[Rfam]
RNA sequence: UGUCUCCUCCAUGUCUCAACCGAUGUGGAUUCAAGCCCGCUCAACUGAAGCGGGCUUUUUUUU
Numbered sequence: 001u002g003u004c005u006c007c008u009c010c011a012u013g014u015c016u017c018a019a020c021c022g023a024u025g026u027g028g029a030u031u032c033a034a035g036c037c038c039g040c041u042c043a044a045c046u047g048a049a050g051c052g053g054g055c056u057u058u059u060u061u062u063u
Stems, first nucleotide, its partner, number of pairs: 008029008034056008

Shown here is a 63-nucleotide RNA sequence from Caballeronia novacaledonica, a member of the family "Betaproteobacteria toxic small RNA". NCBI's taxonomy places the organism under Bacteria, Pseudomonadati, Betaproteobacteria, Burkholderiaceae, Caballeronia. Rfam describes the family as follows. Overexpression in amino aid rich medium attenuates growth, suggesting role in repressing amino acid intake and metabolism. The family has 51 seed sequences and 951 matches in Rfam 15.1.